[Rfam]
RNA sequence: CCACUCUGGAAAGAAGGCGCGAAGCCGCGCCUCACCCAAGGUGAAAGCCGCUUCCGGCGGUGAAACUCUCAGGUGCCCAUGACAGAGGGGGA
Numbered sequence: 001c002c003a004c005u006c007u008g009g010a011a012a013g014a015a016g017g018c019g020c021g022a023a024g025c026c027g028c029g030c031c032u033c034a035c036c037c038a039a040g041g042u043g044a045a046a047g048c049c050g051c052u053u054c055c056g057g058c059g060g061u062g063a064a065a066c067u068c069u070c071a072g073g074u075g076c077c078c079a080u081g082a083c084a085g086a087g088g089g090g091g092a
Stems, first nucleotide, its partner, number of pairs: 001090002004087005015032004034074003038069001041068001043066001047061004
Dot-bracket structure: ((.(((((......((((..........)))).(((.(..(.(...((((.......))))....).))..)))........))))).))..